The record is a 126-nucleotide sequence from Angiostrongylus costaricensis, which matches "Nematode snoRNA ceN39" in Rfam. Rfam classes the family as an H/ACA-box small nucleolar RNA. Pairs were carried over by alignment from the consensus structure, which was predicted with RNAalifold. It scores 50 bits against the family's covariance model.
RNA sequence: GUGGCGGAUAGGAACCAAUCGAUGCCGCUGUGUCGUCUGGGCCGAAAACCGCCUAAAGCAAUUGUAUAAUAAUGGUCGUAUGUGCAACGUUUUGCUGCAUGUAUAUCACCGAAAUAUCGAACAAGU
Numbered sequence: 001g002u003g004g005c006g007g008a009u010a011g012g013a014a015c016c017a018a019u020c021g022a023u024g025c026c027g028c029u030g031u032g033u034c035g036u037c038u039g040g041g042c043c044g045a046a047a048a049c050c051g052c053c054u055a056a057a058g059c060a061a062u063u064g065u066a067u068a069a070u071a072a073u074g075g076u077c078g079u080a081u082g083u084g085c086a087a088c089g090u091u092u093u094g095c096u097g098c099a100u101g102u103a104u105a106u107c108a109c110c111g112a113a114a115u116a117u118c119g120a121a122c123a124a125g126u
Stems, first nucleotide, its partner, number of pairs: 003053005011043002015040003020035006066117003074110003078104002081101005087096001089095001